[Rfam]
RNA: chrB-b RNA
Nucleotides: 050
Stems, first nucleotide, its partner, number of pairs: 001022006011050005027040005
Number, partner (000 for none) and nucleotide at each position: 001022u002021c003020g004019g005018g006017c007000c008000g009000a010000u011050g012049c013048g014047g015046g016000c017006g018005c019004c020003c021002g022001g023000c024000c025000a026000a027040g028039g029038c030037g031036g032000a033000u034000g035000u036031c037030c038029g039028c040027c041000c042000a043000a044000g045000u046015c047014c048013c049012g050011c